[Rfam]
RNA sequence: UCCCCGAAAUGGCAACUUGUUCCGAAAGGGCAAGACGCAAACUAGCAGACCUAAAAACCAUCUUAGGGGUAUGGAUGCUGUUAGUUCCGAA
Numbered sequence: 001u002c003c004c005c006g007a008a009a010u011g012g013c014a015a016c017u018u019g020u021u022c023c024g025a026a027a028g029g030g031c032a033a034g035a036c037g038c039a040a041a042c043u044a045g046c047a048g049a050c051c052u053a054a055a056a057a058c059c060a061u062c063u064u065a066g067g068g069g070u071a072u073g074g075a076u077g078c079u080g081u082u083a084g085u086u087c088c089g090a091a
Stems, first nucleotide, its partner, number of pairs: 012038002017033004022029002041085004046080003050074002058067002